The family of this 135-nucleotide RNA sequence from Microbacterium sp. C448 is "ALIL pseudoknot". The family's RNA type in Rfam is cis-regulatory element.
RNA sequence: GACGAGUUUCUUCGUGGGGGAACUCGACCCCCGCAACCGAUGAUGAUGGGCUUCAUCGACACGAUGAGAGCCGAGGGACACGCGGUCGAGUCGAUCUGCCGAGUCCUGCGUGAGCAGGGCUGCCAGAUCGCCGCG
Numbered sequence: 001g002a003c004g005a006g007u008u009u010c011u012u013c014g015u016g017g018g019g020g021a022a023c024u025c026g027a028c029c030c031c032c033g034c035a036a037c038c039g040a041u042g043a044u045g046a047u048g049g050g051c052u053u054c055a056u057c058g059a060c061a062c063g064a065u066g067a068g069a070g071c072c073g074a075g076g077g078a079c080a081c082g083c084g085g086u087c088g089a090g091u092c093g094a095u096c097u098g099c100c101g102a103g104u105c106c107u108g109c110g111u112g113a114g115c116a117g118g119g120c121u122g123c124c125a126g127a128u129c130g131c132c133g134c135g
Base pairs, nucleotide, nucleotide: 016032017031018030019029020028081135082134083133084132085131092130093129095127096126097125098124100122101121
The family's consensus secondary structure is taken from published work. The match comes from Rfam's covariance-model search (51 bits).